[Rfam]
Nucleotides: 137
Stems, first nucleotide, its partner, number of pairs: 007062006015052002020049002022046001023043006064109007112132001114135001118130003
Number, partner (000 for none) and nucleotide at each position: 001000g002000a003000c004000a005000a006000u007062g008061c009060u010059g011058u012057c013000u014000a015052g016051g017000g018000u019000u020049c021048c022046g023043u024042u025041g026040a027039u028038u029000c030000c031000u032000u033000g034000c035000c036000u037000g038028a039027a040026u041025c042024a043023a044000g045000c046022c047000u048021g049020g050000u051016c052015c053000a054000a055000g056000a057012g058011a059010c060009g061008g062007c063000g064109u065108a066107u067106g068105g069104a070103u071000g072000a073000g074000g075000a076000c077000u078000c079000u080000g081000c082000u083000u084000g085000c086000a087000g088000c089000g090000a091000g092000c093000g094000g095000c096000a097000g098000c099000g100000g101000c102000c103070g104069u105068c106067c107066a108065u109064a110000g111000a112132c113000a114135c115000g116000g117000a118130a119129g120128g121000a122000u123000a124000a125000a126000a127000g128120c129119c130118u131000g132112g133000g134000a135114g136000a137000u